[Rfam]
RNA sequence: GUAAAAAAAGCCUGCAGAUGUAAACACUGCAGGCCCUUUUUAGUUUCUACUACAAAAGAAACUAAAAAGGCAAAGGGAGAGGAGAAACCGGAGGAAGAACUUAUGGGGAAACGUAAGCCUUCUCCGUCU
Dot-bracket structure: ..........(((((((.((....)))))))))(((((....((((((........))))))..........)))))...........((((.((((..((((..........)))).))))))))...
ylbH leader: a 129-nucleotide sequence from Paraliobacillus ryukyuensis.
NCBI's taxonomy places the organism under Bacteria, Bacillati, Bacillota, Bacilli, Paraliobacillus.
It scores 88 bits against the family's covariance model.
This family is a putative regulatory RNA structure that is found upstream of the ylbH gene in B. subtilis and related low GC Gram-positive bacteria.